Plant small nucleolar RNA R71: a 106-nucleotide sequence. The sequence is in the family's curated seed alignment. On this family, see Brown et al., Trends Plant Sci 2003: "Plant snoRNAs: functional evolution and new modes of gene expression". The family's consensus secondary structure was predicted with PFOLD. Gene Ontology terms of the family: RNA processing and nucleolus. Rfam classes the family as a C/D-box small nucleolar RNA.
RNA sequence: AAGCCAUGAUGAGGGCAUUGGUUGGUGUAACCCUUGAACGCUCCCAUGCUUCACAUGAGCUUUCACCAAUUUUUGGUGAAAAACCAGAAAUCUCAUUUCUGAGUCU
Numbered sequence: 001a002a003g004c005c006a007u008g009a010u011g012a013g014g015g016c017a018u019u020g021g022u023u024g025g026u027g028u029a030a031c032c033c034u035u036g037a038a039c040g041c042u043c044c045c046a047u048g049c050u051u052c053a054c055a056u057g058a059g060c061u062u063u064c065a066c067c068a069a070u071u072u073u074u075g076g077u078g079a080a081a082a083a084c085c086a087g088a089a090a091u092c093u094c095a096u097u098u099c100u101g102a103g104u105c106u
Stems, first nucleotide, its partner, number of pairs: 001106001003104002005101002057072001059070001